Notes:
int-alpA RNA: a 65-nucleotide RNA from Paraglaciecola sp. MB-3u-78. The base pairs follow the family's consensus structure, which is taken from published work. Rfam 15.1 lists 577 matches to the family in 491 species. Acidobacteria (1 example), Planctomycetes (1 example), Proteobacteria.
[Rfam]
RNA sequence: ACCAAGUCUAGGGUAGCUCCCGAACAGCCAGAACCCUACUGGCCUGACUUGGUGAUUUAUUAGGG
Numbered sequence: 001a002c003c004a005a006g007u008c009u010a011g012g013g014u015a016g017c018u019c020c021c022g023a024a025c026a027g028c029c030a031g032a033a034c035c036c037u038a039c040u041g042g043c044c045u046g047a048c049u050u051g052g053u054g055a056u057u058u059a060u061u062a063g064g065g
Stems, first nucleotide, its partner, number of pairs: 001053008011021003027043005034065005